[Rfam]
RNA sequence: GCACCGUCGAAUGCCGUACUUCCUCGCUACACACACGGAAAGGAUAGAGGCCCUUGGGUUGAUAUCCUCUCUUUUCACGCGAGGGGGCUAAGGUCGGAGAAUCUCCCUCAUACAACUCGACUCAGUCGUGUUAGCUCUCGAAGGGCCUGGCCUUAACAGGCUUGUGACAGUAACAGAAAGACACGGUCCCUCCUGCAAAGGAUGACGGAUCUUGGGAGGCUGUCGCGGGGGUUGUUUGCUGAGAAGCAACUUCAGUGCAAUGUACGGCGUCUCAUCCUCGGAUGUGAUAACUCAAUUCCGACUAUUCUCGGGGGUGC
Number, nucleotide and partner (000 for none) at each position: 001g317002c316003a315004c314005c000006g000007u000008c310009g309010a308011a000012u000013g268014c267015c266016g265017u264018a263019c262020u000021u000022c000023c083024u082025c081026g080027c079028u000029a000030c000031a000032c000033a000034c000035a000036c000037g000038g071039a070040a000041a068042g067043g066044a065045u064046a063047g000048a000049g000050g000051c000052c000053c000054u000055u000056g000057g000058g000059u000060u000061g000062a000063u046064a045065u044066c043067c042068u041069c000070u039071c038072u000073u000074u000075u000076c000077a000078c000079g027080c026081g025082a024083g023084g000085g000086g000087g000088c000089u000090a000091a000092g000093g000094u000095c300096g299097g298098a297099g296100a000101a000102u000103c000104u230105c229106c228107c227108u000109c000110a000111u000112a000113c000114a000115a000116c000117u000118c000119g000120a000121c000122u000123c000124a000125g000126u000127c000128g000129u000130g000131u000132u000133a000134g146135c145136u144137c143138u000139c000140g000141a000142a000143g137144g136145g135146c134147c000148u000149g162150g161151c160152c159153u158154u000155a000156a000157c000158a153159g152160g151161c150162u149163u000164g226165u225166g224167a223168c222169a221170g220171u000172a000173a000174c000175a000176g000177a000178a000179a000180g000181a000182c000183a000184c000185g211186g210187u209188c000189c000190c000191u000192c000193c000194u000195g000196c000197a000198a000199a000200g000201g000202a000203u000204g000205a000206c000207g000208g000209a187210u186211c185212u000213u000214g000215g000216g000217a000218g000219g000220c170221u169222g168223u167224c166225g165226c164227g107228g106229g105230g104231g000232u000233u000234g000235u000236u000237u000238g000239c000240u000241g000242a000243g000244a000245a000246g000247c000248a000249a000250c000251u000252u000253c000254a000255g000256u000257g000258c000259a000260a000261u000262g019263u018264a017265c016266g015267g014268c013269g288270u287271c286272u000273c284274a283275u282276c000277c000278u000279c000280g000281g000282a275283u274284g273285u000286g271287a270288u269289a000290a000291c000292u000293c000294a000295a000296u099297u098298c097299c096300g095301a000302c000303u000304a000305u000306u000307c000308u010309c009310g008311g000312g000313g000314g004315u003316g002317c001